[Rfam]
RNA: U2 spliceosomal RNA
RNA sequence: ACUGUGUUAAGUAAUUUAAAAAAAAAUCUGUUCUUGUCAGUUUAAUACCGGAUAUGUCCUCCAUUUGAGGAUUUUAUAUUAAAUAGAUUUUUAGAUUUUUAGAGCAAGGAGCUGGGAGAGGGGCUUGCUCCAUACACUCCACACAUCGACCUGGUAUUGCAGUACCUCCAGGAACAGUGCACCUUUU
Numbered sequence: 001a002c003u004g005u006g007u008u009a010a011g012u013a014a015u016u017u018a019a020a021a022a023a024a025a026a027u028c029u030g031u032u033c034u035u036g037u038c039a040g041u042u043u044a045a046u047a048c049c050g051g052a053u054a055u056g057u058c059c060u061c062c063a064u065u066u067g068a069g070g071a072u073u074u075u076a077u078a079u080u081a082a083a084u085a086g087a088u089u090u091u092u093a094g095a096u097u098u099u100u101a102g103a104g105c106a107a108g109g110a111g112c113u114g115g116g117a118g119a120g121g122g123g124c125u126u127g128c129u130c131c132a133u134a135c136a137c138u139c140c141a142c143a144c145a146u147c148g149a150c151c152u153g154g155u156a157u158u159g160c161a162g163u164a165c166c167u168c169c170a171g172g173a174a175c176a177g178u179g180c181a182c183c184u185u186u187u
Stems, first nucleotide, its partner, number of pairs: 001012003035054004040049001056072006108140004115133001120131004144179003148175001150172005